[Rfam]
RNA sequence: UAGCCUGGAGAGAGAAGUAGGGUCUGACCCAUAGCCUCUGUGGCAGCUGUUGAUCAGCACUUGCCUCUCUCUUUCUCUCUG
Numbered sequence: 001u002a003g004c005c006u007g008g009a010g011a012g013a014g015a016a017g018u019a020g021g022g023u024c025u026g027a028c029c030c031a032u033a034g035c036c037u038c039u040g041u042g043g044c045a046g047c048u049g050u051u052g053a054u055c056a057g058c059a060c061u062u063g064c065c066u067c068u069c070u071c072u073u074u075c076u077c078u079c080u081g
Base pairs, nucleotide, nucleotide: 008073009072010071011070012069013068014067015066017064018063019062020061024057025056026055027054029052032049033048034047035046
Annotation: Shown here is an 81-nucleotide sequence from Myotis lucifugus, a member of the family "mir-574 microRNA precursor family". On this family, see Lui et al., Cancer Res 2007: "Patterns of known and novel small RNAs in human cervical cancer". The source organism's lineage runs through Eukaryota, Teleostomi, Theria, Chiroptera and Myotis.